Shown here is a 125-nucleotide RNA sequence from Aneurinibacillus sp. XH2, a member of the family "Glycine riboswitch aptamer". Lineage of the source: Bacteria > Bacillota > Bacilli > Caryophanales > Aneurinibacillus.
[Rfam]
RNA sequence: GGACGAAACUCUGGAGAGACCCCCUCCGCUUCCACACUAAUGAAACGGAGGAAAAAGGGCACCGAAGGAGCAAGUCUGCGCCACCGCGCAGAUAAUCUCUCAGGUAAAAGGACAGGGAUUACAAA
Numbered sequence: 001g002g003a004c005g006a007a008a009c010u011c012u013g014g015a016g017a018g019a020c021c022c023c024c025u026c027c028g029c030u031u032c033c034a035c036a037c038u039a040a041u042g043a044a045a046c047g048g049a050g051g052a053a054a055a056a057g058g059g060c061a062c063c064g065a066a067g068g069a070g071c072a073a074g075u076c077u078g079c080g081c082c083a084c085c086g087c088g089c090a091g092a093u094a095a096u097c098u099c100u101c102a103g104g105u106a107a108a109a110g111g112a113c114a115g116g117g118a119u120u121a122c123a124a125a
Stems, first nucleotide, its partner, number of pairs: 006120002009117005020059003061105003064101002068099003075092005